[Rfam]
RNA sequence: GCUAGAAUGAGCUUGGGGGGUCCUGAGUGCAGACUUCAAAUCUGUAGAGGGGGAGACUCCUAGCUGUUCGACUCAGCCUUUCUAGC
Dot-bracket structure: (((((((.(..((((((....))))))((((((.......)))))).(((((....))))).((((.......))))).)))))))
Rfam assigns this 86-nucleotide RNA from Pycnococcus provasolii to the family "Selenocysteine transfer RNA".
NCBI's taxonomy places the organism under Eukaryota, Chlorophyta, Pseudoscourfieldiophyceae, Pseudoscourfieldiales, Pycnococcus.
The family is grouped with related families in Rfam's "tRNA clan".
A search with the family's covariance model found it, with a score of 70 bits.